This 134-nucleotide RNA from Castor canadensis belongs to the Rfam family "Small nucleolar RNA SNORA42/SNORA80 family". Pairs were carried over by alignment from the consensus structure, which was predicted with RNAalifold. On this family, see Schattner et al., RNA 2006: "A computational screen for mammalian pseudouridylation guide H/ACA RNAs". Lineage of the source: Eukaryota > Eumetazoa > Bilateria > Rodentia > Castor. By type it is an H/ACA-box small nucleolar RNA. Rfam links the family to the GO terms nucleolus and RNA processing. Rfam 15.1 lists 1,535 matches to the family in 183 species. About the family: The members of this family belong to the H/ACA class of snoRNAs that guide the sites of modification of uridines to pseudouridines. Human ACA42 (SNORA42) was cloned from HeLa cells by immunoprecipitation with anti-GAR1 antibody. Its is predicted to guide the pseudouridylation of residues U109 and U572 of 18S rRNA. ACA42 shares the same host gene with ACA26, ACA46, ACA50.
Nucleotides: 134
Base pairs, nucleotide, nucleotide: 001059002058003057004056005054006053007052008051015048016047017046018045019044020043022041023040025037026036073126074125083120084119088115090111091110092109093108094107095106
Number, partner (000 for none) and nucleotide at each position: 001059g002058c003057a004056u005054g006053g007052u008051a009000a010000u011000g012000u013000g014000u015048u016047u017046a018045u019044g020043g021000c022041a023040g024000a025037c026036c027000c028000u029000u030000c031000u032000c033000a034000a035000u036026g037025g038000g039000c040023c041022u042000c043020u044019c045018a046017u047016a048015g049000u050000g051008u052007a053006c054005c055000c056004a057003u058002g059001c060000c061000a062000g063000a064000g065000c066000a067000a068000g069000c070000u071000g072000g073126g074125g075000a076000c077000u078000c079000a080000a081000g082000c083120u084119a085000u086000u087000g088115c089000c090111c091110a092109g093108c094107u095106u096000u097000c098000a099000u100000g101000c102000c103000u104000g105000u106095g107094g108093g109092c110091u111090g112000u113000g114000a115088g116000c117000a118000c119084u120083a121000a122000a123000g124000g125074u126073u127000a128000c129000a130000c131000a132000g133000u134000u